[Rfam]
Nucleotides: 179
Base pairs, nucleotide, nucleotide: 006174007173008172010170011169016081017080018079019078020077023075024074025073033066034065035064037062038061039060085113086112087111088110089109090108092106093105094104095103096102114140115139117137118136119135120134121133122132123131124130142164143163144162145161146160147159148158
Number, partner (000 for none) and nucleotide at each position: 001000g002000a003000g004000c005000g006174g007173g008172g009000u010170a011169g012000a013000g014000g015000c016081g017080c018079g019078g020077c021000a022000u023075a024074g025073c026000a027000u028000g029000a030000g031000u032000a033066c034065c035064g036000c037062c038061c039060u040000g041000g042000a043000g044000c045000c046000u047000g048000g049000g050000a051000a052000g053000c054000g055000a056000g057000g058000a059000a060039g061038g062037g063000a064035c065034g066033g067000g068000a069000a070000a071000g072000g073025g074024c075023u076000g077020g078019c079018c080017g081016c082000c083000g084000a085113a086112g087111c088110a089109g090108c091000c092106g093105g094104g095103u096102u097000u098000c099000c100000c101000g102096g103095g104094c105093c106092c107000u108090g109089c110088u111087g112086c113085u114140g115139g116000g117137c118136u119135g120134g121133u122132g123131c124130u125000g126000a127000a128000c129000a130124a131123g132122u133121a134120c135119c136118a137117g138000a139115c140114u141000g142164u143163c144162a145161c146160u147159a148158c149000c150000u151000a152000g153000a154000c155000g156000g157000g158148g159147u160146a161145g162144u163143g164142g165000a166000g167000c168000g169011c170010u171000c172008c173007u174006c175000g176000c177000a178000c179000g